[Rfam]
RNA sequence: GGUUCGAUGCCACGUCGUCGAGAGCUCAGCAGCGGUGACCAACGAUGCUAUGAUUGAACUAAAACCAAAAUUUUCACAUCUUGAUAGGAAUCUGUUUAUCUUUUUGCAUAGAUUUACAGAGCCGUUUUGUGUGAUUACAAUU
Numbered sequence: 001g002g003u004u005c006g007a008u009g010c011c012a013c014g015u016c017g018u019c020g021a022g023a024g025c026u027c028a029g030c031a032g033c034g035g036u037g038a039c040c041a042a043c044g045a046u047g048c049u050a051u052g053a054u055u056g057a058a059c060u061a062a063a064a065c066c067a068a069a070a071u072u073u074u075c076a077c078a079u080c081u082u083g084a085u086a087g088g089a090a091u092c093u094g095u096u097u098a099u100c101u102u103u104u105u106g107c108a109u110a111g112a113u114u115u116a117c118a119g120a121g122c123c124g125u126u127u128u129g130u131g132u133g134a135u136u137a138c139a140a141u142u
Base pairs, nucleotide, nucleotide: 002059003058004057005056006055007054008053009051013047014046015045016044017043018042020040024033025032026031074134075133076132077131078130087123088122092119093118094117098113099112100111
Overview
The family of this 142-nucleotide sequence from Cucurbita maxima is "Small nucleolar RNA snoR2/U65". It scores 114 bits against the family's covariance model. Pairs were carried over by alignment from the consensus structure, which was predicted with WAR. Its Rfam clan is "SNORA65 clan".